[Rfam]
Nucleotides: 097
Base pairs, nucleotide, nucleotide: 004091005090006089007088008087010083011082012081013080014079015075018073019072020071024066025065026064027063028062034059035058036057037056042051043050044049
Number, partner (000 for none) and nucleotide at each position: 001000g002000a003000u004091c005090g006089g007088u008087c009000c010083c011082c012081u013080c014079g015075c016000a017000g018073u019072g020071g021000u022000a023000c024066g025065u026064g027063g028062u029000g030000a031000a032000c033000c034059c035058c036057g037056u038000c039000a040000g041000g042051c043050c044049c045000g046000g047000a048000a049044g050043g051042g052000a053000g054000c055000a056037g057036c058035g059034g060000c061000a062028g063027c064026c065025g066024c067000c068000g069000a070000u071020c072019c073018a074000g075015g076000u077000g078000c079014c080013g081012g082011g083010g084000u085000g086000u087008g088007g089006c090005u091004g092000g093000u094000u095000g096000g097000c

Bacterial small signal recognition particle RNA: a 97-nucleotide sequence from Acidithiobacillus caldus. About the family: The signal recognition particle (SRP) is a universally conserved ribonucleoprotein involved in the co-translational targeting of proteins to membranes. The family is grouped with related families in Rfam's "SRP clan". The match comes from Rfam's covariance-model search (70 bits). Gene Ontology terms of the family: SRP-dependent cotranslational protein targeting to membrane, signal sequence recognition and signal recognition particle, plasma membrane targeting. It is annotated as a non-coding RNA gene.